[Rfam]
RNA: tRNA
Organism: Eggerthella sp. YY7918
RNA sequence: GGGGGCGUGGCGGAAUUGGCAUACGCAACGGACUUAAAAUCCGUCGGCUUCGGUCUUGUGGGUUCGAGUCCCACCGCCCCUA
Numbered sequence: 001g002g003g004g005g006c007g008u009g010g011c012g013g014a015a016u017u018g019g020c021a022u023a024c025g026c027a028a029c030g031g032a033c034u035u036a037a038a039a040u041c042c043g044u045c046g047g048c049u050u051c052g053g054u055c056u057u058g059u060g061g062g063u064u065c066g067a068g069u070c071c072c073a074c075c076g077c078c079c080c081u082a
Stems, first nucleotide, its partner, number of pairs: 001081007010026003028044005058074005